The family of this 126-nucleotide RNA sequence from Castor canadensis is "Small nucleolar RNA SNORA28".
On this family, see Huttenhofer et al., EMBO J 2001: "RNomics: an experimental approach that identifies 201 candidates for novel, small, non-messenger RNAs in mouse".
The family is grouped with related families in Rfam's "SNORA28 clan".
The organism belongs to Castor, within Eukaryota.
Its family is annotated with RNA processing and nucleolus in the Gene Ontology.
The family's consensus secondary structure was predicted with RNAfold.
A search with the family's covariance model found it, with a score of 110 bits.
Nucleotides: 126
Stems, first nucleotide, its partner, number of pairs: 009048001011046001012041004017036006064119007074112003079107004087100001089098002
Number, partner (000 for none) and nucleotide at each position: 001000a002000g003000g004000g005000c006000u007000a008000a009048c010000a011046c012041u013040g014039u015038g016000g017036u018035a019034g020033a021032u022031g023000a024000u025000c026000a027000a028000a029000a030000g031022u032021g033020u034019c035018u036017g037000u038015c039014a040013c041012a042000a043000u044000u045000u046011g047000a048009g049000c050000u051000u052000a053000c054000u055000a056000u057000a058000g059000c060000a061000a062000g063000a064119a065118a066117g067116u068115c069114u070113a071000a072000c073000c074112u075111a076110u077000u078000c079107u080106g081105g082104u083000g084000u085000a086000c087100u088000a089098u090097c091000c092000u093000c094000u095000a096000u097090g098089a099000g100087a101000c102000a103000a104082g105081c106080u107079g108000u109000u110076a111075u112074a113070u114069a115068g116067g117066u118065u119064u120000a121000a122000a123000c124000a125000g126000u